[Rfam]
RNA sequence: GUCUGAAAAAGGCAAACGUUUCGAAAGAGACGGGCGCAAAGUUGCGGGCCUAAGGCGAAAGCUAUGGCAGUCGGACUACCAGG
Dot-bracket structure: ...........((...((((((....))))))...))..((((.((((((....((....))...)))..)))))))......

Source information
c-di-GMP-I riboswitch aptamer: an 83-nucleotide RNA sequence from Desulfotruncus arcticus. It scores 72 bits against the family's covariance model. The organism belongs to Desulfotruncus arcticus, within Bacteria.